Rfam assigns this 331-nucleotide sequence from Otolemur garnettii to the family "7SK RNA". Rfam describes the family as follows. 7SK was discovered as an abundant small nuclear RNA in the mid-70s but a possible function has only recently been suggested. Two independent studies have found that 7SK RNA binds the CDK9/cyclin T complex (known as elongation factor P-TEFb). It is annotated as a non-coding RNA gene. Lineage of the source: Eukaryota > Euteleostomi > Mammalia > Euarchontoglires > Otolemur.
[Rfam]
RNA sequence: GGAUGUGAGGGUGAUCUGGCUGCAGCAUCUGUCACCCCAUUGAUCUCCAGGGUUGAUUCGACUGAUCUGGCUGUCUAGGCAGGUGUCUCCUUCCUCCCUCACUGCUCCAUGUGCGUCCCUCCCAAAGCUGUGCGGACGGUCCAAGAGGAUGUCCUUUCCCGAUAGAGGAGGACCGUUCUUCGGUUAAGGGUAUACGAGUAGCUGCGCUCCCCUGCUAGAACCUCCAAUCAAGCUUUCAAGGUCCAUUUGUAGGAGAACGUAGGGUAGUCAAGCUUCCAAGACCCCAGACACAUCCAAAUGAGGUGCUGCAUGUGGCAGUCUGCCAAAAAAA
Numbered sequence: 001g002g003a004u005g006u007g008a009g010g011g012u013g014a015u016c017u018g019g020c021u022g023c024a025g026c027a028u029c030u031g032u033c034a035c036c037c038c039a040u041u042g043a044u045c046u047c048c049a050g051g052g053u054u055g056a057u058u059c060g061a062c063u064g065a066u067c068u069g070g071c072u073g074u075c076u077a078g079g080c081a082g083g084u085g086u087c088u089c090c091u092u093c094c095u096c097c098c099u100c101a102c103u104g105c106u107c108c109a110u111g112u113g114c115g116u117c118c119c120u121c122c123c124a125a126a127g128c129u130g131u132g133c134g135g136a137c138g139g140u141c142c143a144a145g146a147g148g149a150u151g152u153c154c155u156u157u158c159c160c161g162a163u164a165g166a167g168g169a170g171g172a173c174c175g176u177u178c179u180u181c182g183g184u185u186a187a188g189g190g191u192a193u194a195c196g197a198g199u200a201g202c203u204g205c206g207c208u209c210c211c212c213u214g215c216u217a218g219a220a221c222c223u224c225c226a227a228u229c230a231a232g233c234u235u236u237c238a239a240g241g242u243c244c245a246u247u248u249g250u251a252g253g254a255g256a257a258c259g260u261a262g263g264g265u266a267g268u269c270a271a272g273c274u275u276c277c278a279a280g281a282c283c284c285c286a287g288a289c290a291c292a293u294c295c296a297a298a299u300g301a302g303g304u305g306c307u308g309c310a311u312g313u314g315g316c317a318g319u320c321u322g323c324c325a326a327a328a329a330a331a
Stems, first nucleotide, its partner, number of pairs: 001108003005102007013093002018090002025086009036073001037070003042067004048060001116171002118168004122139002128134001140162002147158003201273003207267002210264006222255004229249004302324003305319005